[Rfam]
RNA sequence: CAAGACGGUUCGGAUUGAUGUAUUUUUCACCAAAAUGUUCGGGUCAUUAACUUGAAAAUUUGAGGCAUGACCUCAUUUGAUCUCCAGUAGCAAUUUGACCUGAAUGGGGGAAAUUAUGCGUCUGGACCGUCUUAC
Number, nucleotide and partner (000 for none) at each position: 001c000002a133003a132004g131005a130006c129007g128008g127009u126010u125011c124012g123013g000014a000015u000016u000017g122018a121019u120020g119021u118022a117023u000024u000025u000026u113027u042028c041029a000030c037031c000032a000033a000034a000035a000036u000037g030038u000039u000040c000041g028042g027043g000044u000045c000046a000047u000048u000049a000050a000051c064052u063053u062054g061055a060056a000057a000058a000059u000060u055061u054062g053063a052064g051065g000066c000067a076068u075069g074070a000071c000072c000073u000074c069075a068076u067077u000078u000079g000080a000081u111082c110083u109084c108085c107086a000087g105088u104089a000090g000091c000092a000093a000094u000095u000096u000097g000098a000099c000100c000101u000102g000103a000104a088105u087106g000107g085108g084109g083110g082111a081112a000113a026114u000115u000116a000117u022118g021119c020120g019121u018122c017123u012124g011125g010126a009127c008128c007129g006130u005131c004132u003133u002134a000135c000
A member of the RNA family "Yersinia sRNA 155(RyfD)" from Erwinia tracheiphila, 135 nucleotides long.
The source organism's lineage runs through Bacteria, Gammaproteobacteria, Enterobacterales, Erwiniaceae and Erwinia.
Rfam's curators write: The sRNA was identified by and is confirmed to have a stable secondary structure by using genome-wide structure probing at different temperatures.
It is annotated as a small RNA.